[Rfam]
RNA sequence: GCUGGGCGUGGUGGCGUGCGCCUGUAAUCCAGCUACAUGGAGGCCGGGUGGCGGGAGUCGUCGUCGCUGGGAGUUCCACACUGCACGCGCGCAUGUGGAUCGGGCGUCCACGCCAAGCACGGCGUCGAUAUGGCGGCCAUGUCGGAGGACUGUGACCGCCAGGUCGUCUAAGGAGGGGUGGACCGGGCGAGGGGGGAAACCCAGCAGCCAAAAGCUCCCACGUGGUGCAGUGGCGGGAUAGCGCCUGUGAAUGGCGAGUGCAGGAUGGCCCAGAGGGCGUGCGACCACUUCCACCUUU
Numbered sequence: 001g002c003u004g005g006g007c008g009u010g011g012u013g014g015c016g017u018g019c020g021c022c023u024g025u026a027a028u029c030c031a032g033c034u035a036c037a038u039g040g041a042g043g044c045c046g047g048g049u050g051g052c053g054g055g056a057g058u059c060g061u062c063g064u065c066g067c068u069g070g071g072a073g074u075u076c077c078a079c080a081c082u083g084c085a086c087g088c089g090c091g092c093a094u095g096u097g098g099a100u101c102g103g104g105c106g107u108c109c110a111c112g113c114c115a116a117g118c119a120c121g122g123c124g125u126c127g128a129u130a131u132g133g134c135g136g137c138c139a140u141g142u143c144g145g146a147g148g149a150c151u152g153u154g155a156c157c158g159c160c161a162g163g164u165c166g167u168c169u170a171a172g173g174a175g176g177g178g179u180g181g182a183c184c185g186g187g188c189g190a191g192g193g194g195g196g197a198a199a200c201c202c203a204g205c206a207g208c209c210a211a212a213a214g215c216u217c218c219c220a221c222g223u224g225g226u227g228c229a230g231u232g233g234c235g236g237g238a239u240a241g242c243g244c245c246u247g248u249g250a251a252u253g254g255c256g257a258g259u260g261c262a263g264g265a266u267g268g269c270c271c272a273g274a275g276g277g278c279g280u281g282c283g284a285c286c287a288c289u290u291c292c293a294c295c296u297u298u
Base pairs, nucleotide, nucleotide: 001044002043003042004023005022006021007020008019009018010017028041029040030039046296047295048294049293050292051291053289054288057285058284059283060282061281064276065275067273068272069271070270071269076268077267078266081263082262083261084260085259086258088256092253093252094251096249101247102246103245104244105243106242107241108237109236111235112234113233114232115231117228118227119226120225122223123222124221125220126166127165128164129163131161132160133159134158135157136156138154139153140152141150142149143148167173168172175218176217177216178215179214186209187208188207193202194201195200
This 298-nucleotide RNA sequence from Hydatigera taeniaeformis belongs to the Rfam family "Metazoan signal recognition particle RNA". Clan: SRP clan. The source organism's lineage runs through Eukaryota, Spiralia, Platyhelminthes, Rhabditophora and Hydatigera. Rfam 15.1 lists 383,523 matches to the family in 1,221 species. About the family: The signal recognition particle (SRP) is a universally conserved ribonucleoprotein. It is involved in the co-translational targeting of proteins to membranes. The eukaryotic SRP consists of a 300-nucleotide 7S RNA and six proteins: SRPs 72, 68, 54, 19, 14, and 9. Archaeal SRP consists of a 7S RNA and homologues of the eukaryotic SRP19 and SRP54 proteins. Eukaryotic and archaeal 7S RNAs have very similar secondary structures, as represented by this family. Eight helical elements fold into the Alu and S domains, separated by a long linker region. The Alu domain is thought to mediate the peptide chain elongation retardation function of the SRP. The universally conserved helix which interacts with the SRP54 M domain mediates signal sequence recognition. In eukaryotes and archaea, the SRP19-helix 6 complex is thought to be involved in SRP assembly and stabilises helix 8 for SRP54 binding. The Signal Recognition Particle Database (SRPDB) provides compilations of SRP components, with phylogenetic data and structural illustrations. Many sequences below the threshold for this family are clearly closely related, but are most likely to be SRP RNA derived pseudogenes. The human genome in particular is known to contain a large amount of SRP RNA related sequence, including Alu repeats. While the threshold of this family is set high so as to minimise the number of hits to such regions, it is likely that some remain. The match comes from Rfam's covariance-model search (218 bits).